This 126-nucleotide RNA sequence from Polycladospora coralii belongs to the Rfam family "ylbH leader". A search with the family's covariance model found it, with a score of 77 bits. Rfam describes the family as follows. This family is a putative regulatory RNA structure that is found upstream of the ylbH gene in B. subtilis and related low GC Gram-positive bacteria. Its family is annotated with regulation of gene expression in the Gene Ontology. The base pairs follow the family's consensus structure. The family's RNA type in Rfam is cis-regulatory leader.

RNA sequence: AUGAAAAAAGGCUCGCAUUUUAAGGCGAGCCAAGGGUAUCUUUCACAACUCAUAUGUGUCAGAUACUAAAUGGGAGAGGAGAAACCGGAGGAAGAGCUUAUGGGGAAACGUAAGUCUUCUCCGCGG
Numbered sequence: 001a002u003g004a005a006a007a008a009a010g011g012c013u014c015g016c017a018u019u020u021u022a023a024g025g026c027g028a029g030c031c032a033a034g035g036g037u038a039u040c041u042u043u044c045a046c047a048a049c050u051c052a053u054a055u056g057u058g059u060c061a062g063a064u065a066c067u068a069a070a071u072g073g074g075a076g077a078g079g080a081g082a083a084a085c086c087g088g089a090g091g092a093a094g095a096g097c098u099u100a101u102g103g104g105g106a107a108a109c110g111u112a113a114g115u116c117u118u119c120u121c122c123g124c125g126g
Stems, first nucleotide, its partner, number of pairs: 011030006018023001049074005086123004091119004096115005